RNA sequence: AGUAUCAUGUGAUGAAACCUUGAAACAAUCUUAGGACACCUUUUGACACAGUGCUGUUAUCUUGUGAAUGAGAAGUCAUAUUUUUCCUGAUGGUACU
Numbered sequence: 001a002g003u004a005u006c007a008u009g010u011g012a013u014g015a016a017a018c019c020u021u022g023a024a025a026c027a028a029u030c031u032u033a034g035g036a037c038a039c040c041u042u043u044u045g046a047c048a049c050a051g052u053g054c055u056g057u058u059a060u061c062u063u064g065u066g067a068a069u070g071a072g073a074a075g076u077c078a079u080a081u082u083u084u085u086c087c088u089g090a091u092g093g094u095a096c097u
Stems, first nucleotide, its partner, number of pairs: 001097007044050002
RNA: Small nucleolar RNA snoR31/Z110/Z27
Organism: Triticum aestivum